[Rfam]
The record is a 145-nucleotide RNA from Pseudomassariella vexata, which matches "U4 spliceosomal RNA" in Rfam. The source organism's lineage runs through Eukaryota, Dikarya, saccharomyceta, Pezizomycotina and Pseudomassariella. Its family is annotated with U4 snRNP and spliceosomal tri-snRNP complex assembly in the Gene Ontology. The match comes from Rfam's covariance-model search (100 bits). The family's consensus secondary structure is taken from published work.
RNA sequence: AUUCUGGUGCACGGGCUUUACGCAUGUCAGUGAAGGUUCGCCUGAGACUGCGUUUUUGCUAGUUGAAAACUAUACUAUGACCGCUUCUGUUGGGCUUCGGCCUGGCAGAGAAUUUUUGGCACAUAUUUUCUCGUGAGAGACAUGU
Numbered sequence: 001a002u003u004c005u006g007g008u009g010c011a012c013g014g015g016c017u018u019u020a021c022g023c024a025u026g027u028c029a030g031u032g033a034a035g036g037u038u039c040g041c042c043u044g045a046g047a048c049u050g051c052g053u054u055u056u057u058g059c060u061a062g063u064u065g066a067a068a069a070c071u072a073u074a075c076u077a078u079g080a081c082c083g084c085u086u087c088u089g090u091u092g093g094g095c096u097u098c099g100g101c102c103u104g105g106c107a108g109a110g111a112a113u114u115u116u117u118g119g120c121a122c123a124u125a126u127u128u129u130c131u132c133g134u135g136a137g138a139g140a141c142a143u144g145u
Stems, first nucleotide, its partner, number of pairs: 020053005026048003034043003085110011123145004